[Rfam]
RNA sequence: UCGACCGCUGAACAGGGUUCGACACAAGUCCAGGAGACGCCGGUCGUUCUGGGCGUCUCCUUGUAUCCAUGUUGCUUGUUAGGAGGAUAUGGCUAUGAGAA
Numbered sequence: 001u002c003g004a005c006c007g008c009u010g011a012a013c014a015g016g017g018u019u020c021g022a023c024a025c026a027a028g029u030c031c032a033g034g035a036g037a038c039g040c041c042g043g044u045c046g047u048u049c050u051g052g053g054c055g056u057c058u059c060c061u062u063g064u065a066u067c068c069a070u071g072u073u074g075c076u077u078g079u080u081a082g083g084a085g086g087a088u089a090u091g092g093c094u095a096u097g098a099g100a101a
Base pairs, nucleotide, nucleotide: 001022002021003020004019006017008016009015034059035058036057037056038055039054040053041052043050060099061098062097063096064095065094067092068091069090070089071088072087073086075085076084077083